[Rfam]
RNA sequence: CAGAACAACUCACCAGACCCGUGACAGGAACGGGGGAACCACCUUUGGAGCCGUCCCGGCUCCUUGGGGCGAAGUGAUCCGGCGCCCACCGGGUCCAGAGGUUCUCCACCUCGAGCCCGACAGCUCACCCCGUAGGCGUUGGAGGAACACAUG
Numbered sequence: 001c002a003g004a005a006c007a008a009c010u011c012a013c014c015a016g017a018c019c020c021g022u023g024a025c026a027g028g029a030a031c032g033g034g035g036g037a038a039c040c041a042c043c044u045u046u047g048g049a050g051c052c053g054u055c056c057c058g059g060c061u062c063c064u065u066g067g068g069g070c071g072a073a074g075u076g077a078u079c080c081g082g083c084g085c086c087c088a089c090c091g092g093g094u095c096c097a098g099a100g101g102u103u104c105u106c107c108a109c110c111u112c113g114a115g116c117c118c119g120a121c122a123g124c125u126c127a128c129c130c131c132g133u134a135g136g137c138g139u140u141g142g143a144g145g146a147a148c149a150c151a152u153g
Stems, first nucleotide, its partner, number of pairs: 011138001013136002019028002030133006040066002067118003076095007098112004
RNA: c-di-AMP riboswitch aptamer (ydaO/yuaA leader)
Organism: Ornithinimicrobium pratense